[Rfam]
RNA sequence: GCGGAGGGCUGGAUGGCUGCUGUGUCAUCUUCGGGUGACAGGGAGGAAAGUCCGGACUCCAAUAAGAGACGGUGCCGGGUAACGCCCGGGCGGGGUAACCCGACGGAAAGCGCCACAGAAAAUAAACCGCCCUUCCUGCGGGAAGGGUAAGGGUGAAACGGUGGGGUAAGAGCCCACCGCGCGGCUGGUAACAGCAGCGGCAAGGCAAGCCCCACUGGGAGCAACGCCAAAUAGGGACCGCGUGCCGCGUUUGUCUUCGGGCAACCGGCGGAGCUUCUUAUGCUCCAGCAGGUCCGGGUUGGCGGCUGUAGCUGUGUCGGCAACGACAUGGUCAGAGGAAUGGUCAUCUAUGAUGAGGCGUGCAAACGUUUCAUCGGGACAAAAUCCGGCUUAUAGGCCCUCCGCGCAA
Numbered sequence: 001g002c003g004g005a006g007g008g009c010u011g012g013a014u015g016g017c018u019g020c021u022g023u024g025u026c027a028u029c030u031u032c033g034g035g036u037g038a039c040a041g042g043g044a045g046g047a048a049a050g051u052c053c054g055g056a057c058u059c060c061a062a063u064a065a066g067a068g069a070c071g072g073u074g075c076c077g078g079g080u081a082a083c084g085c086c087c088g089g090g091c092g093g094g095g096u097a098a099c100c101c102g103a104c105g106g107a108a109a110g111c112g113c114c115a116c117a118g119a120a121a122a123u124a125a126a127c128c129g130c131c132c133u134u135c136c137u138g139c140g141g142g143a144a145g146g147g148u149a150a151g152g153g154u155g156a157a158a159c160g161g162u163g164g165g166g167u168a169a170g171a172g173c174c175c176a177c178c179g180c181g182c183g184g185c186u187g188g189u190a191a192c193a194g195c196a197g198c199g200g201c202a203a204g205g206c207a208a209g210c211c212c213c214a215c216u217g218g219g220a221g222c223a224a225c226g227c228c229a230a231a232u233a234g235g236g237a238c239c240g241c242g243u244g245c246c247g248c249g250u251u252u253g254u255c256u257u258c259g260g261g262c263a264a265c266c267g268g269c270g271g272a273g274c275u276u277c278u279u280a281u282g283c284u285c286c287a288g289c290a291g292g293u294c295c296g297g298g299u300u301g302g303c304g305g306c307u308g309u310a311g312c313u314g315u316g317u318c319g320g321c322a323a324c325g326a327c328a329u330g331g332u333c334a335g336a337g338g339a340a341u342g343g344u345c346a347u348c349u350a351u352g353a354u355g356a357g358g359c360g361u362g363c364a365a366a367c368g369u370u371u372c373a374u375c376g377g378g379a380c381a382a383a384a385u386c387c388g389g390c391u392u393a394u395a396g397g398c399c400c401u402c403c404g405c406g407c408a409a
Stems, first nucleotide, its partner, number of pairs: 001405010011394001012348007020043002023040006048392003052389005057221004065279002068276001070217005075089005090104001091102004105212002110210002112206003127152002129148008160178006179201001180199003184195004225304004235295005270286005312331008
RNA: Bacterial RNase P class A
Organism: Sulfitobacter donghicola